RNA: L13-Bacteroidia ribosomal protein leader
RNA sequence: UGUGGCUCAUUUGCAACCACACUCGCGUGUUAAUAGCCGGGUUUCAUUGGCCGAAACACGGUGGUUAGUGAAUC
Numbered sequence: 001u002g003u004g005g006c007u008c009a010u011u012u013g014c015a016a017c018c019a020c021a022c023u024c025g026c027g028u029g030u031u032a033a034u035a036g037c038c039g040g041g042u043u044u045c046a047u048u049g050g051c052c053g054a055a056a057c058a059c060g061g062u063g064g065u066u067a068g069u070g071a072a073u074c
Stems, first nucleotide, its partner, number of pairs: 001021005030068005036062004041057004